[Rfam]
small nucleolar RNA snoR134: a 146-nucleotide RNA from Cannabis sativa. The family's RNA type in Rfam is H/ACA-box small nucleolar RNA. Lineage of the source: Eukaryota > Mesangiospermae > eudicotyledons > Pentapetalae > Cannabis. It scores 109 bits against the family's covariance model. Pairs were carried over by alignment from the consensus structure, which was predicted with RNAalifold.
RNA sequence: UUGCAUGUUGCACCCCGGGCUUACCUGAUUGCCCUUUUGACGGCCAAAGCCCCAAUGCACGUGCUAUAACGGCGCCGUUCAGUGUUGCAGUUUGGCUUCGAUAUAUUUUACCACGGCUUGGCUGUGUCAAAGAAACGGCUACAUUA
Numbered sequence: 001u002u003g004c005a006u007g008u009u010g011c012a013c014c015c016c017g018g019g020c021u022u023a024c025c026u027g028a029u030u031g032c033c034c035u036u037u038u039g040a041c042g043g044c045c046a047a048a049g050c051c052c053c054a055a056u057g058c059a060c061g062u063g064c065u066a067u068a069a070c071g072g073c074g075c076c077g078u079u080c081a082g083u084g085u086u087g088c089a090g091u092u093u094g095g096c097u098u099c100g101a102u103a104u105a106u107u108u109u110a111c112c113a114c115g116g117c118u119u120g121g122c123u124g125u126g127u128c129a130a131a132g133a134a135a136c137g138g139c140u141a142c143a144u145u146a
Stems, first nucleotide, its partner, number of pairs: 003064006010058002017052005022046001024043002074139006083129002086126006095117003